[Rfam]
Nucleotides: 355
Stems, first nucleotide, its partner, number of pairs: 001351010011340001012320007020039008044338003048335005053224004060257004065220005070084005085099001086097004100215002105213002108208001122153002124149003131144005161179006180203001181201005186195003228277004238268006248262005284303008
Number, partner (000 for none) and nucleotide at each position: 001351g002350g003349a004348g005347u006346u007345u008344g009343c010342u011340g012320g013319a014318c015317a016316g017315u018314c019000g020039c021038u022037g023036c024035u025034u026033u027032g028000c029000u030000u031000g032027c033026a034025a035024a036023g037022u038021g039020g040000a041000g042000g043000a044338a045337a046336g047000u048335c049334c050333g051332g052331g053224c054223u055222c056221u057000a058000c059000a060257g061256g062255g063254c064000a065220g066219a067218g068217u069216g070084c071083c072082a073081g074080a075000u076000a077000a078000c079000g080074u081073c082072u083071g084070g085099g086097c087096g088095g089094c090000g091000c092000g093000a094089g095088u096087c097086g098000a099085c100215g101214g102000a103000a104000a105213g106212u107000g108208c109000a110000a111000c112000a113000g114000a115000a116000a117000g118000u119000a120000u121000a122153c123152c124149g125148c126147c127000u128000a129000a130000g131144g132143g133142c134141u135140c136000u137000u138000c139000g140135g141134a142133g143132u144131c145000a146000c147126g148125g149124u150000a151000a152123g153122g154000u155000u156000g157000a158000a159000a160000u161179g162178g163177u164176g165175c166174g167000g168000u169000a170000a171000g172000a173000g174166c175165g176164c177163a178162c179161c180203g181201c182200g183199u184198g185197g186195g187194u188193g189000g190000c191000a192000a193188c194187a195186u196000u197185c198184c199183a200182c201181g202000g203180c204000g205000a206000u207000g208108g209000a210000a211000a212106a213105c214101c215100c216069c217068a218067c219066u220065c221056a222055g223054a224053g225000c226000a227000a228277g229276a230275c231274c232000a233000a234000a235000u236000a237000g238268g239267g240266a241265u242264c243263c244000u245000u246000a247000a248262g249261g250260u251259g252258c253000g254063g255062c256061c257060c258252g259251u260250a261249c262248u263243g264242g265241a266240u267239c268238c269000g270000g271000g272000u273000a274231g275230g276229u277228c278000g279000c280000u281000a282000g283000a284303g285302g286301u287300g288299c289298a290297u291296g292000g293000u294000g295000a296291c297290a298289u299288g300287c301286a302285u303284u304000c305000g306000a307000g308000a309000c310000g311000a312000a313000u314018g315017a316016c317015u318014g319013u320012u321000c322000a323000c324000g325000a326000c327000a328000g329000a330000a331052c332051c333050c334049g335048g336046c337045u338044u339000a340011u341000a342010g343009g344008c345007a346006a347005a348004c349003u350002c351001c352000c353000a354000a355000c

Bacterial RNase P class A: a 355-nucleotide RNA from Nitrincola tibetensis. Its family is annotated with dimeric ribonuclease P complex, ribonuclease P activity and tRNA processing in the Gene Ontology. Pairs were carried over by alignment from the consensus structure, which is taken from published work.